About this RNA:
Small nucleolar RNA SNORA55: a 132-nucleotide RNA sequence.
[Rfam]
RNA sequence: GCACUCAAAUCUUUCCCAGGCCUGCUGCUUGGUGCCGGUCUGGGGACAGGCAGUGCAAUAGUAGAGCAGAGGAAAUCCAGACGGGUUGUUUCCAUCUGUCCUGGGGCCUGUCUCUACAACUCUGCCACACUC
Numbered sequence: 001g002c003a004c005u006c007a008a009a010u011c012u013u014u015c016c017c018a019g020g021c022c023u024g025c026u027g028c029u030u031g032g033u034g035c036c037g038g039u040c041u042g043g044g045g046a047c048a049g050g051c052a053g054u055g056c057a058a059u060a061g062u063a064g065a066g067c068a069g070a071g072g073a074a075a076u077c078c079a080g081a082c083g084g085g086u087u088g089u090u091u092c093c094a095u096c097u098g099u100c101c102u103g104g105g106g107c108c109u110g111u112c113u114c115u116a117c118a119a120c121u122c123u124g125c126c127a128c129a130c131u132c
Stems, first nucleotide, its partner, number of pairs: 001056005013046007021038002066125006079113008092104003

The base pairs follow the family's consensus structure, which was predicted with PFOLD.